The record is an 84-nucleotide RNA sequence from Tepidimonas charontis, which matches "SucA RNA motif" in Rfam. For this family Rfam cites "Identification of 22 candidate structured RNAs in bacteria using the CMfinder comparative genomics pipeline" (Weinberg et al., Nucleic Acids Res, 2007). Lineage of the source: Bacteria > Pseudomonadati > Betaproteobacteria > Burkholderiales > Tepidimonas.
[Rfam]
RNA sequence: UCGCGUCCGCCAACCGGUUCAGCCGUGUCGCGGAAGGUUUUUUCACCCACCCGUCAGUCCCCUACAGGGGGACGGAGGUCAGCG
Dot-bracket structure: .(((.(((((....((((...))))....))))).(((......))).(((.....(((((((...)))))))...)))..)))